A member of the RNA family "mir-1422 microRNA precursor family" from Ornithorhynchus anatinus, 83 nucleotides long. Pairs were carried over by alignment from the consensus structure, which was predicted with RNAalifold. The organism belongs to Ornithorhynchus, within Eukaryota.
RNA sequence: CUGAUUCUGGAUUCAGUCAAGAAAGUAUUUUCUUUACAUACAGUUAAUCUGGAAAAUGGUGUCUUGAUUGAUUCCAGGGUCAG
Numbered sequence: 001c002u003g004a005u006u007c008u009g010g011a012u013u014c015a016g017u018c019a020a021g022a023a024a025g026u027a028u029u030u031u032c033u034u035u036a037c038a039u040a041c042a043g044u045u046a047a048u049c050u051g052g053a054a055a056a057u058g059g060u061g062u063c064u065u066g067a068u069u070g071a072u073u074c075c076a077g078g079g080u081c082a083g
Stems, first nucleotide, its partner, number of pairs: 003081004008076004013071009028056006